[Rfam]
RNA sequence: UCGAAGCUCCAUCUAUAAAUGGAUAAUUUCAUUUUUCGUUCGUAGUUUAGUGUAUACGAGUUAUUGAAAGUAAAGGGGCGAUACCGGUUUUCUUGACAUAACAAGAAAUUGGUUAUUGCUCCUUU
Numbered sequence: 001u002c003g004a005a006g007c008u009c010c011a012u013c014u015a016u017a018a019a020u021g022g023a024u025a026a027u028u029u030c031a032u033u034u035u036u037c038g039u040u041c042g043u044a045g046u047u048u049a050g051u052g053u054a055u056a057c058g059a060g061u062u063a064u065u066g067a068a069a070g071u072a073a074a075g076g077g078g079c080g081a082u083a084c085c086g087g088u089u090u091u092c093u094u095g096a097c098a099u100a101a102c103a104a105g106a107a108a109u110u111g112g113u114u115a116u117u118g119c120u121c122c123u124u125u
Stems, first nucleotide, its partner, number of pairs: 008023005072125012087110001090107005
Dot-bracket structure: .......(((((......)))))................................................((((((((((((...(..(((((........)))))..)...))))))))))))
RNA: Plastid-psbA-1 3UTR RNA
Organism: Microtea debilis